RNA: mir-11 microRNA precursor family
RNA sequence: UCUCGCGGCUAGCACUUUGGCUGUGAGUGUGUGACGCUCACAUCACAGUCAGAGUUCUAGCUGCGCGG
Numbered sequence: 001u002c003u004c005g006c007g008g009c010u011a012g013c014a015c016u017u018u019g020g021c022u023g024u025g026a027g028u029g030u031g032u033g034a035c036g037c038u039c040a041c042a043u044c045a046c047a048g049u050c051a052g053a054g055u056u057c058u059a060g061c062u063g064c065g066c067g068g
Stems, first nucleotide, its partner, number of pairs: 004065003009060004014055004021048006027041003
Dot-bracket structure: ...(((..((((.((((...(((((((((.........))).))))))...)))).))))..)))...